This 116-nucleotide RNA sequence from Bos grunniens belongs to the Rfam family "U5 spliceosomal RNA". The match comes from Rfam's covariance-model search (106 bits). U5 RNA is a component of both types of known spliceosome.
RNA sequence: AUGCUCUAGUUUCUCUUCAGACCGUAUAAAUCUUUCGCCUUUUACUAAAGAUUUCCGUGGAGAGGAACAAUUCUGAGUCUAAAACUAAUUUUUUGAGGCCUUGCUUCGGUAAGGCU
Numbered sequence: 001a002u003g004c005u006c007u008a009g010u011u012u013c014u015c016u017u018c019a020g021a022c023c024g025u026a027u028a029a030a031u032c033u034u035u036c037g038c039c040u041u042u043u044a045c046u047a048a049a050g051a052u053u054u055c056c057g058u059g060g061a062g063a064g065g066a067a068c069a070a071u072u073c074u075g076a077g078u079c080u081a082a083a084a085c086u087a088a089u090u091u092u093u094u095g096a097g098g099c100c101u102u103g104c105u106u107c108g109g110u111a112a113g114g115c116u
Stems, first nucleotide, its partner, number of pairs: 003078004009068011028054008096116001098115006